Shown here is a 92-nucleotide RNA sequence from Pseudomonas chlororaphis, a member of the family "ivy-DE RNA". The family's consensus secondary structure is taken from published work. It is annotated as a cis-regulatory element.
RNA sequence: UGACCAGGAGGCCGGGACGUUCUGAUCGAAACCGGAUCGGAGUGACCUAGGGGUACUGGGAGUGCCCCCGCGAGGGCCGGGUCAGGAAAAAC
Number, nucleotide and partner (000 for none) at each position: 001u084002g083003a082004c081005c080006a000007g000008g000009a000010g078011g077012c076013c075014g048015g047016g046017a000018c044019g000020u042021u041022c040023u039024g038025a037026u036027c035028g000029a000030a000031a000032c000033c000034g000035g027036a026037u025038c024039g023040g022041a021042g020043u000044g018045a000046c016047c015048u014049a000050g068051g067052g066053g065054u064055a063056c062057u000058g000059g000060g000061a000062g056063u055064g054065c053066c052067c051068c050069c000070g000071c000072g000073a000074g000075g013076g012077c011078c010079g000080g005081g004082u003083c002084a001085g000086g000087a000088a000089a000090a000091a000092c000